[Rfam]
Nucleotides: 070
Stems, first nucleotide, its partner, number of pairs: 002068001004066001006064002010060002015055004020050003024046006
Number, partner (000 for none) and nucleotide at each position: 001000a002068g003000c004066c005000u006064c007063g008000a009000a010060c011059c012000c013000g014000u015055a016054g017053a018052u019000c020050c021049g022048a023000a024046c025045u026044u027043g028042u029041g030000u031000u032000a033000a034000c035000u036000g037000a038000c039000a040000c041029c042028a043027c044026a045025a046024g047000a048022u049021u050020g051000u052018g053017u054016c055015u056000a057000c058000a059011g060010g061000u062000c063007c064006g065000c066004g067000u068002c069000u070000g
The record is a 70-nucleotide RNA from Menidia menidia, which matches "mir-10 microRNA precursor family" in Rfam. The organism belongs to Menidia, within Eukaryota. The match comes from Rfam's covariance-model search (54 bits). Pairs were carried over by alignment from the consensus structure, which was predicted with PFOLD. A reference for the family is Lee and Ambros (2001), "An extensive class of small RNAs in Caenorhabditis elegans", Science.